[Rfam]
RNA sequence: CUGGCCCCGGUUCACGUACGGACAAUUCCGUCCGCACGACCCGGCGCC
Numbered sequence: 001c002u003g004g005c006c007c008c009g010g011u012u013c014a015c016g017u018a019c020g021g022a023c024a025a026u027u028c029c030g031u032c033c034g035c036a037c038g039a040c041c042c043g044g045c046g047c048c
Stems, first nucleotide, its partner, number of pairs: 003048003007044004015038003019034005
Rfam assigns this 48-nucleotide sequence to the family "L31-Actinobacteria ribosomal protein leader".
The match comes from Rfam's covariance-model search (46 bits).
It is annotated as a cis-regulatory leader.